Source information
A member of the RNA family "SAH (S-adenosyl-L-homocysteine) riboswitch aptamer" from Pelomonas sp. HMWF004, 82 nucleotides long. Rfam 15.1 lists 1,354 matches to the family in 1,132 species. Rfam links the family to the GO terms S-adenosylhomocysteine metabolic process and regulation of gene expression. It scores 61 bits against the family's covariance model.
[Rfam]
RNA sequence: UCUUCCGAGGAGCGUUGCAACCUCAGCACCUUUUGAGGCCAGGCUCGGAGAUUCCACCCCCCUGCAACUGCGCUCACCCGCC
Numbered sequence: 001u002c003u004u005c006c007g008a009g010g011a012g013c014g015u016u017g018c019a020a021c022c023u024c025a026g027c028a029c030c031u032u033u034u035g036a037g038g039c040c041a042g043g044c045u046c047g048g049a050g051a052u053u054c055c056a057c058c059c060c061c062c063u064g065c066a067a068c069u070g071c072g073c074u075c076a077c078c079c080g081c082c
Stems, first nucleotide, its partner, number of pairs: 003050006021038006